Annotation
A member of the RNA family "Group II catalytic intron D1-D4-5" from Alkalicella caledoniensis, 181 nucleotides long. Gene Ontology term of the family: Group II intron splicing. Rfam 15.1 lists 720 matches to the family in 418 species. Rfam's curators write: Group II introns are found in rRNA, tRNA and mRNA of organelles in fungi, plants and protists, and also in mRNA in bacteria. The match comes from Rfam's covariance-model search (117 bits). The organism belongs to Alkalicella, within Bacteria. The literature on the family includes a 2001 paper in Trends Genet by Bonen and Vogel, "The ins and outs of group II introns".
RNA sequence: UACAACUGAUUUAUCGAGAGUAGGAAUGAUACCGUCAUGUCGUGUUGAAACUACUCCUCUGAUACUCCUGUAUGCACAAAAGAGUAGUAGCUCAAUUGUGUGUGAAGCCAGGUGAAGUCGGCUGAAUCAUACCUAAGUUCCACUAUGGAAUAUGGUAAGAGAUAGGCCGGGAGGUUGAAAA
Numbered sequence: 001u002a003c004a005a006c007u008g009a010u011u012u013a014u015c016g017a018g019a020g021u022a023g024g025a026a027u028g029a030u031a032c033c034g035u036c037a038u039g040u041c042g043u044g045u046u047g048a049a050a051c052u053a054c055u056c057c058u059c060u061g062a063u064a065c066u067c068c069u070g071u072a073u074g075c076a077c078a079a080a081a082g083a084g085u086a087g088u089a090g091c092u093c094a095a096u097u098g099u100g101u102g103u104g105a106a107g108c109c110a111g112g113u114g115a116a117g118u119c120g121g122c123u124g125a126a127u128c129a130u131a132c133c134u135a136a137g138u139u140c141c142a143c144u145a146u147g148g149a150a151u152a153u154g155g156u157a158a159g160a161g162a163u164a165g166g167c168c169g170g171g172a173g174g175u176u177g178a179a180a181a
Stems, first nucleotide, its partner, number of pairs: 018056006031046001033044002057173004067112004071104009082093003119169005127160002130157003133148003